[Rfam]
RNA sequence: CAAUCUGCCAGUCUCCGAGUCGUAUCAGCCUAAAAGGGAUAAAUCCUCAUGGCCUGCGACCUGCGGGUGUCGCCGGAAACAGCGCCGCCCUCCUUUGAAAAGGGGUUCUGCGCUUGACACA
Numbered sequence: 001c002a003a004u005c006u007g008c009c010a011g012u013c014u015c016c017g018a019g020u021c022g023u024a025u026c027a028g029c030c031u032a033a034a035a036g037g038g039a040u041a042a043a044u045c046c047u048c049a050u051g052g053c054c055u056g057c058g059a060c061c062u063g064c065g066g067g068u069g070u071c072g073c074c075g076g077a078a079a080c081a082g083c084g085c086c087g088c089c090c091u092c093c094u095u096u097g098a099a100a101a102g103g104g105g106u107u108c109u110g111c112g113c114u115u116g117a118c119a120c121a
Base pairs, nucleotide, nucleotide: 003115006112011107013105014104015103016102019060020059021058022057023056024055028053029052030051035047036046037045065090066089067088068087069086071084072083073082075080091098092097